[Rfam]
RNA sequence: UUUGGCACAAUGAGGAGUUAAGUUUGCUAAUGUAUCUUUGAGGUCCAAAGACCAAUGACUCUUUUGUCCUUUUCAUUCUGAGUGCCUU
Numbered sequence: 001u002u003u004g005g006c007a008c009a010a011u012g013a014g015g016a017g018u019u020a021a022g023u024u025u026g027c028u029a030a031u032g033u034a035u036c037u038u039u040g041a042g043g044u045c046c047a048a049a050g051a052c053c054a055a056u057g058a059c060u061c062u063u064u065u066g067u068c069c070u071u072u073u074c075a076u077u078c079u080g081a082g083u084g085c086c087u088u
Base pairs, nucleotide, nucleotide: 004086005085006084007083008082010076011075012074013073014072043052044051045050

The record is an 88-nucleotide sequence from Zizania palustris, which matches "Small nucleolar RNA Z162" in Rfam. It is annotated as a C/D-box small nucleolar RNA. The literature on the family includes a 2003 paper in Nucleic Acids Res by Chen et al., "The high diversity of snoRNAs in plants: identification and comparative study of 120 snoRNA genes from Oryza sativa". Gene Ontology terms of the family: nucleolus and RNA processing.